[Rfam]
RNA sequence: GACUAAGCGUAUACGGUGGAUGCCUUGGCAAUCAGAGGCGAUGAAGGACGUGGUAAUCUGCGAAAAGCGUGGGGGAGCUGAUAAACGAGCUUUGAUCCCGCGAUGUCCGAAUGGGGAAACCCACCCAGUGUAAGCUGGGUAUCUUAGACUGAAUACAUAGGUCUAAGAGGCGAACCCGGGGAACUGAAACAUCUAAGUACCCGGAGGAAAAGAAAUCAACCGAGAUUCCCUAAGUAGUGGCGAGCGAACGGGGAACAGCCCUUAAGCUGUGUGAAUGUUAGUGGAAGGACCUGGAAAGGUCCGCCGUAGUGGGUGAUAGCCCCGUACACGAAAACUGAUCACAGUGAAAUCGAGUAGGUCGGGACACGAGAAAUCCUGACUGAAUAUGGGGGGACCAUCCUCCAAGGCUAAAUACUCCUGAUUGACCGAUAGUGAACAAGUACCGUGAGGGAAAGGCGAAAAGAACCCCUGUGAGGGGAGUGAAAUAGAUCCUGAAACCGUAUACGUACAAG
Numbered sequence: 001g002a003c004u005a006a007g008c009g010u011a012u013a014c015g016g017u018g019g020a021u022g023c024c025u026u027g028g029c030a031a032u033c034a035g036a037g038g039c040g041a042u043g044a045a046g047g048a049c050g051u052g053g054u055a056a057u058c059u060g061c062g063a064a065a066a067g068c069g070u071g072g073g074g075g076a077g078c079u080g081a082u083a084a085a086c087g088a089g090c091u092u093u094g095a096u097c098c099c100g101c102g103a104u105g106u107c108c109g110a111a112u113g114g115g116g117a118a119a120c121c122c123a124c125c126c127a128g129u130g131u132a133a134g135c136u137g138g139g140u141a142u143c144u145u146a147g148a149c150u151g152a153a154u155a156c157a158u159a160g161g162u163c164u165a166a167g168a169g170g171c172g173a174a175c176c177c178g179g180g181g182a183a184c185u186g187a188a189a190c191a192u193c194u195a196a197g198u199a200c201c202c203g204g205a206g207g208a209a210a211a212g213a214a215a216u217c218a219a220c221c222g223a224g225a226u227u228c229c230c231u232a233a234g235u236a237g238u239g240g241c242g243a244g245c246g247a248a249c250g251g252g253g254a255a256c257a258g259c260c261c262u263u264a265a266g267c268u269g270u271g272u273g274a275a276u277g278u279u280a281g282u283g284g285a286a287g288g289a290c291c292u293g294g295a296a297a298g299g300u301c302c303g304c305c306g307u308a309g310u311g312g313g314u315g316a317u318a319g320c321c322c323c324g325u326a327c328a329c330g331a332a333a334a335c336u337g338a339u340c341a342c343a344g345u346g347a348a349a350u351c352g353a354g355u356a357g358g359u360c361g362g363g364a365c366a367c368g369a370g371a372a373a374u375c376c377u378g379a380c381u382g383a384a385u386a387u388g389g390g391g392g393g394a395c396c397a398u399c400c401u402c403c404a405a406g407g408c409u410a411a412a413u414a415c416u417c418c419u420g421a422u423u424g425a426c427c428g429a430u431a432g433u434g435a436a437c438a439a440g441u442a443c444c445g446u447g448a449g450g451g452a453a454a455g456g457c458g459a460a461a462a463g464a465a466c467c468c469c470u471g472u473g474a475g476g477g478g479a480g481u482g483a484a485a486u487a488g489a490u491c492c493u494g495a496a497a498c499c500g501u502a503u504a505c506g507u508a509c510a511a512g
Stems, first nucleotide, its partner, number of pairs: 007507010022492001023456002027427002029424007036416002038171002046108003049062003068102007077090003113122003123140007142168009175206001176204005186193002216223002226412001227254005237245002257409004266345005277335003281329003287302005305309001311323003357381008388403005443450002466478004
A member of the RNA family "Bacterial large subunit ribosomal RNA" from Reinekea forsetii, 512 nucleotides of a longer RNA. Lineage of the source: Bacteria > Pseudomonadati > Gammaproteobacteria > Oceanospirillales > Reinekea. Pairs were carried over by alignment from the consensus structure, which is taken from published work.